[Rfam]
RNA sequence: AAAGUAAACGUAGAUAGCUACAGAUUCCAUUUAAUACAAUCUGAGGAAAGUCCGGGCUCCACAAAUACAAUUUAUGCUGGAAAAACCCCAGUGUAGGAAACUAUGAGGACAGUGCCACAGAAAUAAACCGCCAGAAUAAAUUAUAUUAGCUGGUAAGGGUGCAAAGGUAAGUUAAGAGCUAACCAAAAAUACUGUAAAGUAUUUGUUAGGUAAACCCCAGAAAUGGAGCAAAGCGACUAAACAAAUUUUUUGUAUUUUUUAGUAGUUUAGUUUAAAAUACUGCAUGAAGUUAUUGGUAACAAUAACUCUAGAGGAAUAGCUAUCCUUUGCAAUACUUAGUCCAAUGUAUUCGAAGAACAGAACCCGGCUUAUGUAGUACUUUUUGU
Numbered sequence: 001a002a003a004g005u006a007a008a009c010g011u012a013g014a015u016a017g018c019u020a021c022a023g024a025u026u027c028c029a030u031u032u033a034a035u036a037c038a039a040u041c042u043g044a045g046g047a048a049a050g051u052c053c054g055g056g057c058u059c060c061a062c063a064a065a066u067a068c069a070a071u072u073u074a075u076g077c078u079g080g081a082a083a084a085a086c087c088c089c090a091g092u093g094u095a096g097g098a099a100a101c102u103a104u105g106a107g108g109a110c111a112g113u114g115c116c117a118c119a120g121a122a123a124u125a126a127a128c129c130g131c132c133a134g135a136a137u138a139a140a141u142u143a144u145a146u147u148a149g150c151u152g153g154u155a156a157g158g159g160u161g162c163a164a165a166g167g168u169a170a171g172u173u174a175a176g177a178g179c180u181a182a183c184c185a186a187a188a189a190u191a192c193u194g195u196a197a198a199g200u201a202u203u204u205g206u207u208a209g210g211u212a213a214a215c216c217c218c219a220g221a222a223a224u225g226g227a228g229c230a231a232a233g234c235g236a237c238u239a240a241a242c243a244a245a246u247u248u249u250u251u252g253u254a255u256u257u258u259u260u261a262g263u264a265g266u267u268u269a270g271u272u273u274a275a276a277a278u279a280c281u282g283c284a285u286g287a288a289g290u291u292a293u294u295g296g297u298a299a300c301a302a303u304a305a306c307u308c309u310a311g312a313g314g315a316a317u318a319g320c321u322a323u324c325c326u327u328u329g330c331a332a333u334a335c336u337u338a339g340u341c342c343a344a345u346g347u348a349u350u351c352g353a354a355g356a357a358c359a360g361a362a363c364c365c366g367g368c369u370u371a372u373g374u375a376g377u378a379c380u381u382u383u384u385g386u
Base pairs, nucleotide, nucleotide: 001382002381003380004379005378006377009376012372013324014323015322016321017320018319019318021043022042023041024040025039026038029035048370049369050368052367053366054365055364056363057228058227059226060225067259069257072223073222075219076218077091078090079089080088092106093104094103095102096101107217108216112215113214114211115210116209128158129157130154131153132152133151134150138146166184167183168182170180171179186206187204188203189202190201191200192199193198232281233280235278240272241271242270244268245267251265255261288307289306290305291304292303293302294301295300
RNA: Bacterial RNase P class A